[Rfam]
The family of this 114-nucleotide sequence from Dicentrarchus labrax is "Potassium channel RNA editing signal". It is annotated as a cis-regulatory element. The organism belongs to Dicentrarchus, within Eukaryota. Pairs were carried over by alignment from the consensus structure, which is taken from published work.
RNA sequence: GUAGGCUAUGGGGAUAUCUACCCAAAAACUCUACUGGGGAAGAUAGUGGGGGGUUUGUGCUGCAUAGCUGGAGUACUGGUGAUUGCCCUACCUAUUCCCAUUAUUGUAAAUAAC
Dot-bracket structure: ((.(..(((((.(((....(................((.(........(.(.........).)..........).)).................)....))).)))))..).))